[Rfam]
RNA sequence: UCGUUAAGUGAUGACGUGACAGAUAGAGAGUCACAUCAUUAAGCUUAAUCCUUGACAUGUCAUUGUCUCGUUAUCAUCUCCAAUGACGUGUCAGUGAUUAGACUUAAUGACAUGACACUAUGUUUAUCACGUCAUCACUUAAUGGAA
Number, nucleotide and partner (000 for none) at each position: 001u145002c144003g143004u142005u141006a140007a139008g138009u137010g136011a135012u134013g133014a132015c131016g130017u129018g128019a127020c000021a125022g124023a123024u122025a121026g000027a119028g118029a000030g116031u115032c114033a113034c000035a000036u110037c109038a108039u107040u106041a105042a104043g103044c000045u101046u100047a000048a098049u097050c096051c000052u094053u000054g092055a091056c090057a089058u088059g000060u000061c000062a000063u000064u000065g000066u000067c000068u000069c000070g087071u086072u085073a084074u083075c000076a000077u000078c000079u000080c000081c000082a000083a074084u073085g072086a071087c070088g058089u057090g056091u055092c054093a000094g052095u000096g050097a049098u048099u000100a046101g045102a000103c043104u042105u041106a040107a039108u038109g037110a036111c000112a000113u033114g032115a031116c030117a000118c028119u027120a000121u025122g024123u023124u022125u021126a000127u019128c018129a017130c016131g015132u014133c013134a012135u011136c010137a009138c008139u007140u006141a005142a004143u003144g002145g001146a000147a000
The record is a 147-nucleotide sequence from Glycine max, which matches "MIR4371 microRNA precursor family" in Rfam. Pairs were carried over by alignment from the consensus structure, which was predicted with RNAalifold. Rfam 15.1 lists 321 matches to the family in 4 species. Gene Ontology terms of the family: RISC complex and miRNA-mediated post-transcriptional gene silencing.